[Rfam]
RNA: Vault RNA
RNA sequence: AGGUCAACUUUAGCACAAACAGCUACUUCCUCAUGUUGAACUUUCCAUUUGUCUAAUUCCUGCACUGGGAUCUGAGACCAGUGAGUCCUUUUUGACUCCUUA
Numbered sequence: 001a002g003g004u005c006a007a008c009u010u011u012a013g014c015a016c017a018a019a020c021a022g023c024u025a026c027u028u029c030c031u032c033a034u035g036u037u038g039a040a041c042u043u044u045c046c047a048u049u050u051g052u053c054u055a056a057u058u059c060c061u062g063c064a065c066u067g068g069g070a071u072c073u074g075a076g077a078c079c080a081g082u083g084a085g086u087c088c089u090u091u092u093u094g095a096c097u098c099c100u101u102a
Base pairs, nucleotide, nucleotide: 002097003096004095005094006093007092013086014085016083019082020081022079027076028075029074